Shown here is a 190-nucleotide sequence from Pseudomonas sp. SSM44, a member of the family "RgsA sRNA". This small RNA (sRNA) was computationally identified in the genome of the opportunistic pathogen Pseudomonas aeruginosa and its expression verified by northern blot analysis. P16 sRNA appears to be conserved across several Pseudomonas species and Azotobacter vinelandii. Gene Ontology terms of the family: sRNA-mediated gene silencing, response to hydrogen peroxide and response to oxidative stress. For this family Rfam cites "Identification of 17 Pseudomonas aeruginosa sRNAs and prediction of sRNA-encoding genes in 10 diverse pathogens using the bioinformatic tool sRNAPredict2" (Livny et al., Nucleic Acids Res, 2006).
RNA sequence: AAAGCGGGGCGUACGUAUUCCAAAUCAGUUUAUAAAAAAACGAGGGGAUACUGGAAAGCCGGGGGAUUUAAACAAUACUCAAACUAUCAGAUACGGCAUUCCCCCAAGUGCCUGUCUGAGCUGACAGGUUAGCUCCUGUCUCAGUAUCACUCCUAAUGGUCUUAACCCGAAUUCUUCCCCCAGAAUUCGG
Numbered sequence: 001a002a003a004g005c006g007g008g009g010c011g012u013a014c015g016u017a018u019u020c021c022a023a024a025u026c027a028g029u030u031u032a033u034a035a036a037a038a039a040a041c042g043a044g045g046g047g048a049u050a051c052u053g054g055a056a057a058g059c060c061g062g063g064g065g066a067u068u069u070a071a072a073c074a075a076u077a078c079u080c081a082a083a084c085u086a087u088c089a090g091a092u093a094c095g096g097c098a099u100u101c102c103c104c105c106a107a108g109u110g111c112c113u114g115u116c117u118g119a120g121c122u123g124a125c126a127g128g129u130u131a132g133c134u135c136c137u138g139u140c141u142c143a144g145u146a147u148c149a150c151u152c153c154u155a156a157u158g159g160u161c162u163u164a165a166c167c168c169g170a171a172u173u174c175u176u177c178c179c180c181c182a183g184a185a186u187u188c189g190g
Stems, first nucleotide, its partner, number of pairs: 040160002043157001087119004092114001095112001097110003123140005128134001167190004172185003